[Rfam]
RNA sequence: UCCCAUCCGGCCCGGGCACUCCACUUUCUGCCCGCUCCGGAUCAAAAAAAGGAGGAAAAAUACCCGCCCGGCUCGCGGUGCGGCAGUGUGGAGACCUGCCGUAAAGCGGCGCGGCCCAGAGCGGCCGGCCGUGAGGGACCAGCAUGCGGAUGCACUGGUCCCGGAGCCUCAAUGCUAUGGCA
Numbered sequence: 001u002c003c004c005a006u007c008c009g010g011c012c013c014g015g016g017c018a019c020u021c022c023a024c025u026u027u028c029u030g031c032c033c034g035c036u037c038c039g040g041a042u043c044a045a046a047a048a049a050a051g052g053a054g055g056a057a058a059a060a061u062a063c064c065c066g067c068c069c070g071g072c073u074c075g076c077g078g079u080g081c082g083g084c085a086g087u088g089u090g091g092a093g094a095c096c097u098g099c100c101g102u103a104a105a106g107c108g109g110c111g112c113g114g115c116c117c118a119g120a121g122c123g124g125c126c127g128g129c130c131g132u133g134a135g136g137g138a139c140c141a142g143c144a145u146g147c148g149g150a151u152g153c154a155c156u157g158g159u160c161c162c163g164g165a166g167c168c169u170c171a172a173u174g175c176u177a178u179g180g181c182a
Stems, first nucleotide, its partner, number of pairs: 006041005013034006064078004070168005079103008088095002106132005112127003135162008145154003
The family of this 182-nucleotide sequence is "malK-I RNA". Rfam classes the family as a cis-regulatory element.